[Rfam]
RNA sequence: CGGUACCUUCGGGGCAGGGUGAAAAUCCCGACCGGCGGUGUUAAAGCGUAUGCUUUUCAGUCCGUGACCCGGCUGGCAUUUUUGGCAGCCGGUGGAUCCGGUGUAACUCCGGAGCCGACAGUGAAAGUCUGGAUGGGAGAAGGAAUGA
Numbered sequence: 001c002g003g004u005a006c007c008u009u010c011g012g013g014g015c016a017g018g019g020u021g022a023a024a025a026u027c028c029c030g031a032c033c034g035g036c037g038g039u040g041u042u043a044a045a046g047c048g049u050a051u052g053c054u055u056u057u058c059a060g061u062c063c064g065u066g067a068c069c070c071g072g073c074u075g076g077c078a079u080u081u082u083u084g085g086c087a088g089c090c091g092g093u094g095g096a097u098c099c100g101g102u103g104u105a106a107c108u109c110c111g112g113a114g115c116c117g118a119c120a121g122u123g124a125a126a127g128u129c130u131g132g133a134u135g136g137g138a139g140a141a142g143g144a145a146u147g148a
Stems, first nucleotide, its partner, number of pairs: 003146002006143005017029003031128002033117002035065004060115002069092004097113005119131003
This 148-nucleotide sequence from Salsuginibacillus halophilus belongs to the Rfam family "FMN riboswitch aptamer (RFN element)". NCBI's taxonomy places the organism under Bacteria, Bacilli, Caryophanales, Bacillaceae, Salsuginibacillus. The match comes from Rfam's covariance-model search (108 bits).